Background: Shown here is a 131-nucleotide RNA from Neomonachus schauinslandi, a member of the family "Small nucleolar RNA SNORA63". A search with the family's covariance model found it, with a score of 98 bits. A reference for the family is Mishra and Eliceiri (1997), "Three small nucleolar RNAs that are involved in ribosomal RNA precursor processing", Proc Natl Acad Sci U S A. Gene Ontology terms of the family: nucleolus and RNA processing.

[Rfam]
RNA sequence: AUGCAGGAUCUAGUUACAAUGUAGCUGUAAAGUGCUGCCUUGUCUUUGCCCCCUGCUCAAAAUAAAGCUGUUACCUUUCUAGCCCUGUCCACCAUGGUGCUUAGCAGCCAGGGAUGCAUGGUCUCAGACAU
Numbered sequence: 001a002u003g004c005a006g007g008a009u010c011u012a013g014u015u016a017c018a019a020u021g022u023a024g025c026u027g028u029a030a031a032g033u034g035c036u037g038c039c040u041u042g043u044c045u046u047u048g049c050c051c052c053c054u055g056c057u058c059a060a061a062a063u064a065a066a067g068c069u070g071u072u073a074c075c076u077u078u079c080u081a082g083c084c085c086u087g088u089c090c091a092c093c094a095u096g097g098u099g100c101u102u103a104g105c106a107g108c109c110a111g112g113g114a115u116g117c118a119u120g121g122u123c124u125c126a127g128a129c130a131u
Stems, first nucleotide, its partner, number of pairs: 003056005016043004021038005084112004089107001092104001
Dot-bracket structure: ..(((((........((((.(((((........))))).))))........)))))...........................((((.(..(...........)..).))))...................

Rfam's curators write: E3 belongs to the H/ACA class of snoRNAs and is involved in the processing of eukaryotic pre-rRNA and has regions of complementarity to 18S rRNA. E3 is encoded in introns in the gene for protein synthesis initiation factor 4AII.